[Rfam]
RNA sequence: UCCGUUGCUUGACAACGAGAGAGAGCACGCCUGUCGGCAUUCAUGGGAAGGGAGCAUGACAGUCUACAAGUGUGCUCUCUCGCGUUGUCAUUCGAGC
Numbered sequence: 001u002c003c004g005u006u007g008c009u010u011g012a013c014a015a016c017g018a019g020a021g022a023g024a025g026c027a028c029g030c031c032u033g034u035c036g037g038c039a040u041u042c043a044u045g046g047g048a049a050g051g052g053a054g055c056a057u058g059a060c061a062g063u064c065u066a067c068a069a070g071u072g073u074g075c076u077c078u079c080u081c082g083c084g085u086u087g088u089c090a091u092u093c094g095a096g097c
Stems, first nucleotide, its partner, number of pairs: 010090005016084002020080002023077001025075006032068003